[Rfam]
RNA: Enterobacterial sRNA STnc240
Organism: Duffyella gerundensis
RNA sequence: UGCGAAUGGUGCAAAAUACGCGCCCUGCAAAAUGAAAAAAUAACCGACGCUACCCGCGCCGGUUAUUUUUUUGC
Number, nucleotide and partner (000 for none) at each position: 001u000002g000003c000004g000005a000006a000007u000008g000009g000010u000011g021012c020013a000014a000015a000016a000017u000018a000019c000020g012021c011022g000023c000024c000025c000026u000027g000028c000029a000030a000031a000032a000033u000034g000035a000036a000037a000038a000039a000040a000041u065042a064043a063044c062045c061046g060047a000048c058049g057050c000051u000052a000053c000054c000055c000056g000057c049058g048059c000060c046061g045062g044063u043064u042065a041066u000067u000068u000069u000070u000071u000072u000073g000074c000